[Rfam]
RNA: Salmonella enterica sRNA STnc40
Organism: Citrobacter freundii
RNA sequence: GCAGUGCCAUGGUCGAUUGAGCUAAGCAAAUAACUCACUGAAAAGGCGCAGAAUUCUGCGCCUUUUUU
Number, nucleotide and partner (000 for none) at each position: 001g000002c019003a018004g017005u000006g013007c012008c000009a000010u000011g000012g007013u006014c000015g000016a000017u004018u003019g002020a000021g000022c000023u000024a000025a000026g000027c000028a000029a000030a000031u000032a000033a000034c000035u000036c000037a000038c000039u000040g000041a066042a065043a064044a063045g062046g061047c060048g059049c058050a057051g056052a000053a000054u000055u000056c051057u050058g049059c048060g047061c046062c045063u044064u043065u042066u041067u000068u000